[Rfam]
Rfam assigns this 469-nucleotide part of an RNA from Chrysochloris asiatica to the family "Eukaryotic large subunit ribosomal RNA". Lineage of the source: Eukaryota > Deuterostomia > Vertebrata > Mammalia > Chrysochloris.

RNA sequence: GGUAGUAGCAAAUAUUCAAACGAGAACUUUGAAGCUCCAAGUGGAGAAGGGUACCAUGUGAACAGCAGUUGAACAAGGGUCAGUCGGUCCUGAGAGAUGGGCGAGCGCCUUUCGGAAGAGAUGGGCGAUGACCUCUGUUGCCCCCGGCGGAUCAAAAGGGAGUCAGGUUCAGAUCUUGGAAUCCGGAGUGGUAAAGACAGGCGCCGCCAGGCGUCCAGUGCGGUAAUGCAGCCACCCGGAGAAGCCGGCGGGAGCCCCGGGGGAGAGUUCUCUUUUCUUUGUGAAGGGCAGGGCGCCCUGGAAUGGGUUCGCCCCAGAGAGGGGCCCGCGCCUUGGAAAGCCGUCGGGUUCCGGCGGCCCCUGGUGAGCUCUCGCUGGCCUUUGAAAAUCCGGGGGAGAGCGUGUAACUCUCACUCUGGCAGUAUCCAUAUCCGCAGCAGGUCUCCAAGGUGAAUAGCCUCUGGCGUGU
Numbered sequence: 001g002g003u004a005g006u007a008g009c010a011a012a013u014a015u016u017c018a019a020a021c022g023a024g025a026a027c028u029u030u031g032a033a034g035c036u037c038c039a040a041g042u043g044g045a046g047a048a049g050g051g052u053a054c055c056a057u058g059u060g061a062a063c064a065g066c067a068g069u070u071g072a073a074c075a076a077g078g079g080u081c082a083g084u085c086g087g088u089c090c091u092g093a094g095a096g097a098u099g100g101g102c103g104a105g106c107g108c109c110u111u112u113c114g115g116a117a118g119a120g121a122u123g124g125g126c127g128a129u130g131a132c133c134u135c136u137g138u139u140g141c142c143c144c145c146g147g148c149g150g151a152u153c154a155a156a157a158g159g160g161a162g163u164c165a166g167g168u169u170c171a172g173a174u175c176u177u178g179g180a181a182u183c184c185g186g187a188g189u190g191g192u193a194a195a196g197a198c199a200g201g202c203g204c205c206g207c208c209a210g211g212c213g214u215c216c217a218g219u220g221c222g223g224u225a226a227u228g229c230a231g232c233c234a235c236c237c238g239g240a241g242a243a244g245c246c247g248g249c250g251g252g253a254g255c256c257c258c259g260g261g262g263g264a265g266a267g268u269u270c271u272c273u274u275u276u277c278u279u280u281g282u283g284a285a286g287g288g289c290a291g292g293g294c295g296c297c298c299u300g301g302a303a304u305g306g307g308u309u310c311g312c313c314c315c316a317g318a319g320a321g322g323g324g325c326c327c328g329c330g331c332c333u334u335g336g337a338a339a340g341c342c343g344u345c346g347g348g349u350u351c352c353g354g355c356g357g358c359c360c361c362u363g364g365u366g367a368g369c370u371c372u373c374g375c376u377g378g379c380c381u382u383u384g385a386a387a388a389u390c391c392g393g394g395g396g397a398g399a400g401c402g403u404g405u406a407a408c409u410c411u412c413a414c415u416c417u418g419g420c421a422g423u424a425u426c427c428a429u430a431u432c433c434g435c436a437g438c439a440g441g442u443c444u445c446c447a448a449g450g451u452g453a454a455u456a457g458c459c460u461c462u463g464g465c466g467u468g469u
Base pairs, nucleotide, nucleotide: 015033016032017031018030019029020028034467035466036464037463043446044445045444046443049426050425054078055077057075058074059073063071064070085422087420089159090158094153095152096112097111100109101108102107120145163180164179166177167176183418185416186415210412211411213409214407219230220229221228222227235394236393237392238391239390240389244379245378246377247376249374250373251372252371253370254369255368257364258363260360262280263279264278265277266276285334286333287332288331289330296323297322298321299320305314306313307312341357342356343355344354345353346352347351432441433440448460449459450458451457
A search with the family's covariance model found it, with a score of 1656 bits.